[Rfam]
RNA sequence: CUUGAUGGUCUGGAUCGGACCUGCGCCAGUUUUUAUCGCGGUAAUACUCCAAGCAGAACGGUUAUCACCGGGUGAAAAUUGGUACAGGUCCGAUCCAUGCGA
Numbered sequence: 001c002u003u004g005a006u007g008g009u010c011u012g013g014a015u016c017g018g019a020c021c022u023g024c025g026c027c028a029g030u031u032u033u034u035a036u037c038g039c040g041g042u043a044a045u046a047c048u049c050c051a052a053g054c055a056g057a058a059c060g061g062u063u064a065u066c067a068c069c070g071g072g073u074g075a076a077a078a079u080u081g082g083u084a085c086a087g088g089u090c091c092g093a094u095c096c097a098u099g100c101g102a
Stems, first nucleotide, its partner, number of pairs: 016092007025083013039070001041068002044065003
Shown here is a 102-nucleotide RNA from Caenorhabditis nigoni, a member of the family "mir-36 microRNA precursor family". The match comes from Rfam's covariance-model search (76 bits). The family's consensus secondary structure was predicted with WAR. The literature on the family includes a 2004 paper in RNA by Ohler et al., "Patterns of flanking sequence conservation and a characteristic upstream motif for microRNA gene identification".